Shown here is a 103-nucleotide sequence, a member of the family "Purine riboswitch aptamer".

[Rfam]
RNA sequence: CAAAAUAUAGUACGAUUCCUUCAUAUAUCCUCGAAAAUUUGGUUCGAGAGUCUCUACCGGGUCACCGUAUAAUGACCUGACUAUGAAGGCAGGAUUUUUCUGU
Number, nucleotide and partner (000 for none) at each position: 001c000002a000003a000004a000005a000006u000007a000008u000009a000010g000011u000012a000013c000014g000015a000016u000017u000018c089019c088020u087021u086022c085023a084024u083025a082026u000027a000028u000029c000030c048031u047032c046033g045034a044035a043036a000037a000038u000039u000040u000041g000042g000043u035044u034045c033046g032047a031048g030049a000050g000051u000052c000053u000054c000055u000056a000057c000058c079059g078060g077061g076062u075063c074064a073065c000066c000067g000068u000069a000070u000071a000072a000073u064074g063075a062076c061077c060078u059079g058080a000081c000082u025083a024084u023085g022086a021087a020088g019089g018090c000091a000092g000093g000094a000095u000096u000097u000098u000099u000100c000101u000102g000103u000

Rfam links the family to the GO term purine nucleobase biosynthetic process.